[Rfam]
RNA sequence: GAAUGGGGCGUGUCGUGGGUCCCCCCGCCGACGAUUCGCCCCCCGGGGACGGGUUUCGAUCCGUCCCCACUGAUCCCUUCCGGUGGAAAACGCCCCCCUCCGUCGGAAGGCGCGGCGGGCGGUGAGGUUCCCCCCAACCUCGCCGCCCGUUUCU
Numbered sequence: 001g002a003a004u005g006g007g008g009c010g011u012g013u014c015g016u017g018g019g020u021c022c023c024c025c026c027g028c029c030g031a032c033g034a035u036u037c038g039c040c041c042c043c044c045g046g047g048g049a050c051g052g053g054u055u056u057c058g059a060u061c062c063g064u065c066c067c068c069a070c071u072g073a074u075c076c077c078u079u080c081c082g083g084u085g086g087a088a089a090a091c092g093c094c095c096c097c098c099u100c101c102g103u104c105g106g107a108a109g110g111c112g113c114g115g116c117g118g119g120c121g122g123u124g125a126g127g128u129u130c131c132c133c134c135c136a137a138c139c140u141c142g143c144c145g146c147c148c149g150u151u152u153c154u
Stems, first nucleotide, its partner, number of pairs: 008039003012035003016031001018029002045068009055059001070115001076110002080106004085101003117148012